The record is a 59-nucleotide RNA from Oscillatoriales cyanobacterium M59_W2019_021, which matches "Nitrogen stress-induced RNA 1" in Rfam. Rfam classes the family as a small RNA. The family has 17 seed sequences and 962 matches in Rfam 15.1.
RNA sequence: UGGUAGAUGCACCCUGAUUGAUAUUCCACCGACUCCUGGUACAGGAGUCGGUUUUUUUU
Number, nucleotide and partner (000 for none) at each position: 001u000002g013003g012004u011005a000006g000007a000008u000009g000010c000011a004012c003013c002014c000015u000016g000017a000018u000019u000020g000021a000022u000023a000024u000025u000026c000027c000028a000029c051030c050031g049032a048033c047034u046035c045036c044037u043038g042039g000040u000041a000042c038043a037044g036045g035046a034047g033048u032049c031050g030051g029052u000053u000054u000055u000056u000057u000058u000059u000